Ribosomal protein L20 leader: a 133-nucleotide RNA from Streptococcus sp. DD13. Taxonomically the source falls in Streptococcus (Bacteria, Bacilli, Lactobacillales, Streptococcaceae). Rfam links the family to the GO term regulation of gene expression.

RNA sequence: UGAGAAAAGCAGAAGUGAAAGCUUCUCGCCUUGCGACUAACGUUGUCUGGCUCUACAGGAAAAGAUUUCUUUUAAAGAAAGAUUAGAUGUGGAGAGCGGACUUGUGUAUACAGGUCCGCUUCGUUUUUCUCGA
Numbered sequence: 001u002g003a004g005a006a007a008a009g010c011a012g013a014a015g016u017g018a019a020a021g022c023u024u025c026u027c028g029c030c031u032u033g034c035g036a037c038u039a040a041c042g043u044u045g046u047c048u049g050g051c052u053c054u055a056c057a058g059g060a061a062a063a064g065a066u067u068u069c070u071u072u073u074a075a076a077g078a079a080a081g082a083u084u085a086g087a088u089g090u091g092g093a094g095a096g097c098g099g100a101c102u103u104g105u106g107u108a109u110a111c112a113g114g115u116c117c118g119c120u121u122c123g124u125u126u127u128u129c130u131c132g133a
Stems, first nucleotide, its partner, number of pairs: 011026006028051003033046005095120010